[Rfam]
Nucleotides: 083
Stems, first nucleotide, its partner, number of pairs: 002078001005075005024063003027059002031057003037050002
Number, partner (000 for none) and nucleotide at each position: 001000g002078u003000a004000c005075c006074u007073c008072u009071g010000g011000a012000a013000a014000g015000c016000g017000a018000a019000g020000g021000u022000g023000c024063a025062c026061c027059g028058a029000a030000g031057g032056a033055g034000c035000a036000a037050u038049u039000c040000u041000c042000u043000u044000a045000g046000g047000a048000g049038a050037a051000g052000a053000a054000u055033c056032u057031c058028u059027c060000a061026g062025g063024u064000u065000a066000a067000u068000a069000a070000a071009c072008a073007g074006a075005g076000u077000g078002a079000a080000c081000u082000u083000a
The record is an 83-nucleotide RNA sequence from Alkaliphilus serpentinus, which matches "Glycine riboswitch aptamer" in Rfam. This family represents the bacterial glycine riboswitch. The base pairs follow the family's consensus structure. NCBI's taxonomy places the organism under Bacteria, Bacillati, Peptostreptococcales, Natronincolaceae, Alkaliphilus.